[Rfam]
RNA: Small nucleolar RNA SNORD22
Organism: Nyctereutes procyonoides
RNA sequence: UCCCAGUGAAGAAACAGUCACAUGUCUUACCUUCUGUCUUAGUCCCAGAGCAGUGAACCACUGGGGCUGGCUGGGGAAAGGAGGAAGCUUGCUCUAGAAGGAACUGUCUGAGGGAU
Numbered sequence: 001u002c003c004c005a006g007u008g009a010a011g012a013a014a015c016a017g018u019c020a021c022a023u024g025u026c027u028u029a030c031c032u033u034c035u036g037u038c039u040u041a042g043u044c045c046c047a048g049a050g051c052a053g054u055g056a057a058c059c060a061c062u063g064g065g066g067c068u069g070g071c072u073g074g075g076g077a078a079a080g081g082a083g084g085a086a087g088c089u090u091g092c093u094c095u096a097g098a099a100g101g102a103a104c105u106g107u108c109u110g111a112g113g114g115a116u
Base pairs, nucleotide, nucleotide: 001115002114003113004112